[Rfam]
RNA sequence: GAUCGGUGCUUGUGAUGACUAAUCUUUUUUCCCCAGCAGAUCGACAAUGUUGACUGCAUGACUUUAAAAGCCAAACCUGUCUGAUGCACCAUC
Numbered sequence: 001g002a003u004c005g006g007u008g009c010u011u012g013u014g015a016u017g018a019c020u021a022a023u024c025u026u027u028u029u030u031c032c033c034c035a036g037c038a039g040a041u042c043g044a045c046a047a048u049g050u051u052g053a054c055u056g057c058a059u060g061a062c063u064u065u066a067a068a069a070g071c072c073a074a075a076c077c078u079g080u081c082u083g084a085u086g087c088a089c090c091a092u093c
Stems, first nucleotide, its partner, number of pairs: 001093003005090005
RNA: Small nucleolar SNORD12/SNORD106